[Rfam]
RNA sequence: GGGAUAUGAUGAGUGGUUGAGUCUCGCACAUAAUAUGCGAGUUGGGUGUUCGCCCCAAGCCUGGUUACGACAAUUGGGCACUCUCAUUUAAUCAAUCUGAUCCC
Numbered sequence: 001g002g003g004a005u006a007u008g009a010u011g012a013g014u015g016g017u018u019g020a021g022u023c024u025c026g027c028a029c030a031u032a033a034u035a036u037g038c039g040a041g042u043u044g045g046g047u048g049u050u051c052g053c054c055c056c057a058a059g060c061c062u063g064g065u066u067a068c069g070a071c072a073a074u075u076g077g078g079c080a081c082u083c084u085c086a087u088u089u090a091a092u093c094a095a096u097c098u099g100a101u102c103c104c
Stems, first nucleotide, its partner, number of pairs: 001104004014094005023041005044083007062076004